[Rfam]
RNA sequence: GUAGCACCCAACCCAAAGGUCAUGUCUAAUUCAUGAUGUGAUCCAGCAUGGUGUGCUGAUAGGAAAAUGUACCUUGUCGCCUUUCGGAUACUGAUGUGUUCUAGAAAGUGAAUUCAAGGUUCUACACUU
Numbered sequence: 001g002u003a004g005c006a007c008c009c010a011a012c013c014c015a016a017a018g019g020u021c022a023u024g025u026c027u028a029a030u031u032c033a034u035g036a037u038g039u040g041a042u043c044c045a046g047c048a049u050g051g052u053g054u055g056c057u058g059a060u061a062g063g064a065a066a067a068u069g070u071a072c073c074u075u076g077u078c079g080c081c082u083u084u085c086g087g088a089u090a091c092u093g094a095u096g097u098g099u100u101c102u103a104g105a106a107a108g109u110g111a112a113u114u115c116a117a118g119g120u121u122c123u124a125c126a127c128u129u
Stems, first nucleotide, its partner, number of pairs: 002058006009051001018043009069122001071120005081108005087102001090099002
RNA: Small nucleolar RNA SNORA68